[Rfam]
RNA sequence: ACGGCGAAUGCCGAGAGGACUACACUUCUAAUGCGUUGGUCGUCGGUUCAACUCCGACUCCGUGAAAGCGGGUAGCUCAGCCAGGUAGAGCAGCGAAACGUCCUUUCAUUCCUUGUCGCCUCCUU
Number, nucleotide and partner (000 for none) at each position: 001a000002c000003g120004g119005c118006g117007a116008a000009u000010g000011c000012c000013g107014a106015g105016a104017g103018g102019a101020c000021u000022a000023c095024a000025c000026u000027u000028c000029u000030a000031a000032u000033g000034c000035g094036u093037u092038g000039g000040u000041c000042g058043u057044c056045g055046g054047u000048u000049c085050a000051a000052c000053u000054c046055c045056g044057a043058c042059u072060c071061c070062g069063u068064g000065a000066a000067a000068g063069c062070g061071g060072g059073u000074a000075g091076c090077u089078c088079a000080g000081c000082c000083a000084g000085g049086u000087a000088g078089a077090g076091c075092a037093g036094c035095g023096a000097a000098a000099c000100g000101u019102c018103c017104u016105u015106u014107c013108a000109u000110u000111c000112c000113u000114u000115g000116u007117c006118g005119c004120c003121u000122c000123c000124u000125u000

The record is a 125-nucleotide sequence from Verrucomicrobiales bacterium VVV1, which matches "Y RNA-like" in Rfam.
The source organism's lineage runs through Bacteria, Pseudomonadati, Verrucomicrobiota, Verrucomicrobiia and Verrucomicrobiales.
On this family, see Chen et al., Cell 2013: "An RNA degradation machine sculpted by Ro autoantigen and noncoding RNA".